This 95-nucleotide RNA sequence from Ruminococcaceae bacterium CPB6 belongs to the Rfam family "Bacterial small signal recognition particle RNA". The family's RNA type in Rfam is non-coding RNA gene. The family is grouped with related families in Rfam's "SRP clan". It scores 51 bits against the family's covariance model. About the family: The signal recognition particle (SRP) is a universally conserved ribonucleoprotein involved in the co-translational targeting of proteins to membranes.
[Rfam]
Nucleotides: 095
Stems, first nucleotide, its partner, number of pairs: 004095005009087006015078001017077006023068001025066004034059004042051003
Number, partner (000 for none) and nucleotide at each position: 001000g002000g003000g004095c005094g006093g007092g008091c009087u010086c011085u012084g013083u014082g015078c016000g017077g018076c019075g020074g021073g022072g023068c024000g025066c026065c027064g028063u029000g030000a031000a032000c033000c034059a035058u036057g037056u038000c039000a040000g041000g042051c043050g044049g045000g046000g047000a048000a049044c050043c051042g052000a053000g054000c055000a056037g057036c058035a059034u060000u061000a062000a063028g064027c065026g066025g067000a068023g069000u070000g071000g072022c073021c074020c075019u076018g077017u078015g079000c080000g081000a082014u083013g084012c085011a086010g087009g088000u089000u090000u091008g092007u093006c094005u095004g